[Rfam]
RNA: Alphaproteobacteria transfer-messenger RNA
Organism: Oceanicella actignis
RNA sequence: CCCCUUCACCCGCGGUCCGCGCGCGCCUAUAUUCGCCUUGUCCCUUCGGGGACUAUGGCGAUAAACGCGCACGUAAUAAGCGGAUCGGACCCGGGGGCGGUACCCGGCGGCUCCACCAGAAUCCCUCUCCACCCGUUCGUUGGCGGGCGGACGCAAGAGGCAGAAGGGGGCCGAAACAGGAUCGACGGACGUGUAAAGGUGUUGCUUUCGCCCGGCAGGAUGCCACCGUUAUCGGCUCAAAACGCAUAGUUGCCAACGACAACCGUGCUCCGGUGGCCGUCGCUGCGUAAUGCAGCGACCAAACCGAAACCGAAGUCCUGAGGCUUAGCCGCUUCAGGCGGGGUCCGCAGGCGCCUGGCAACAGAAGCCUGCACU
Numbered sequence: 001c002c003c004c005u006u007c008a009c010c011c012g013c014g015g016u017c018c019g020c021g022c023g024c025g026c027c028u029a030u031a032u033u034c035g036c037c038u039u040g041u042c043c044c045u046u047c048g049g050g051g052a053c054u055a056u057g058g059c060g061a062u063a064a065a066c067g068c069g070c071a072c073g074u075a076a077u078a079a080g081c082g083g084a085u086c087g088g089a090c091c092c093g094g095g096g097g098c099g100g101u102a103c104c105c106g107g108c109g110g111c112u113c114c115a116c117c118a119g120a121a122u123c124c125c126u127c128u129c130c131a132c133c134c135g136u137u138c139g140u141u142g143g144c145g146g147g148c149g150g151a152c153g154c155a156a157g158a159g160g161c162a163g164a165a166g167g168g169g170g171c172c173g174a175a176a177c178a179g180g181a182u183c184g185a186c187g188g189a190c191g192u193g194u195a196a197a198g199g200u201g202u203u204g205c206u207u208u209c210g211c212c213c214g215g216c217a218g219g220a221u222g223c224c225a226c227c228g229u230u231a232u233c234g235g236c237u238c239a240a241a242a243c244g245c246a247u248a249g250u251u252g253c254c255a256a257c258g259a260c261a262a263c264c265g266u267g268c269u270c271c272g273g274u275g276g277c278c279g280u281c282g283c284u285g286c287g288u289a290a291u292g293c294a295g296c297g298a299c300c301a302a303a304c305c306g307a308a309a310c311c312g313a314a315g316u317c318c319u320g321a322g323g324c325u326u327a328g329c330c331g332c333u334u335c336a337g338g339c340g341g342g343g344u345c346c347g348c349a350g351g352c353g354c355c356u357g358g359c360a361a362c363a364g365a366a367g368c369c370u371g372c373a374c375u
Base pairs, nucleotide, nucleotide: 040053041052042051043050044049057212058211059210060209061208067205068204069202070201071200072199081191082190085188086187087186091107092106093105094104095103108173109172110171111170112169113168114167213228214227215226219238220237222236223235224234341356342355343354344353347372348371349370350369351368352367